[Rfam]
RNA sequence: UUUUAUAGCUAGGGGUGCCCUCCCUACGGGGCUGAGAAAACACCCUUAGAACCUGAUUUAGUUAUUGCGGUUUGCCGGUGGCUCGAUCGCAAUGAAUUUCUGGGUAAUACCAGCGCAGGGAAGCUGUUUAUCUGAGGA
Numbered sequence: 001u002u003u004u005a006u007a008g009c010u011a012g013g014g015g016u017g018c019c020c021u022c023c024c025u026a027c028g029g030g031g032c033u034g035a036g037a038a039a040a041c042a043c044c045c046u047u048a049g050a051a052c053c054u055g056a057u058u059u060a061g062u063u064a065u066u067g068c069g070g071u072u073u074g075c076c077g078g079u080g081g082c083u084c085g086a087u088c089g090c091a092a093u094g095a096a097u098u099u100c101u102g103g104g105u106a107a108u109a110c111c112a113g114c115g116c117a118g119g120g121a122a123g124c125u126g127u128u129u130a131u132c133u134g135a136g137g138a
Stems, first nucleotide, its partner, number of pairs: 006126005011046004016040001017032005052119004058113002061110001
Shown here is a 138-nucleotide RNA from Romeriopsis navalis, a member of the family "TPP riboswitch aptamer (THI element)". It scores 55 bits against the family's covariance model. Its family is annotated with thiamine pyrophosphate binding in the Gene Ontology. The family's consensus secondary structure is taken from published work. NCBI's taxonomy places the organism under Bacteria, Cyanobacteriota, Cyanophyceae, Leptolyngbyaceae, Romeriopsis navalis.